[Rfam]
RNA sequence: GGGUGCUUGAGGCUUUCUGCCUUAAGCAGUGUGUAUGUUGACGGCAGAAAGAGAAAAGCCCCAUUCGAUAUUCAUCAAAUGAGGCCUGACCCUAAUGCGCAACAACAUGAAGGUUAGUCCUUUAUCGGUCGAAAGACAAGGAGGAGUAACCAUG
Numbered sequence: 001g002g003g004u005g006c007u008u009g010a011g012g013c014u015u016u017c018u019g020c021c022u023u024a025a026g027c028a029g030u031g032u033g034u035a036u037g038u039u040g041a042c043g044g045c046a047g048a049a050a051g052a053g054a055a056a057a058g059c060c061c062c063a064u065u066c067g068a069u070a071u072u073c074a075u076c077a078a079a080u081g082a083g084g085c086c087u088g089a090c091c092c093u094a095a096u097g098c099g100c101a102a103c104a105a106c107a108u109g110a111a112g113g114u115u116a117g118u119c120c121u122u123u124a125u126c127g128g129u130c131g132a133a134a135g136a137c138a139a140g141g142a143g144g145a146g147u148a149a150c151c152a153u154g
Base pairs, nucleotide, nucleotide: 001062002061003060005059006058007057008056013051014050015049016048017047018046019045020044021043023041026038027037063080064079067076068075069074081121083119084118085117089114090113091112093110095108096107097106126146129143

Record summary: Rfam assigns this 154-nucleotide RNA sequence from Erwinia sp. Leaf53 to the family "sok antitoxin (CssrC)". For this family Rfam cites "An antisense RNA controls synthesis of an SOS-induced toxin evolved from an antitoxin" (Kawano et al., Mol Microbiol, 2007). By type it is an antitoxin RNA. Rfam links the family to the GO term mRNA binding. About the family: Also identified in Shigella as CssrC. A search with the family's covariance model found it, with a score of 96 bits.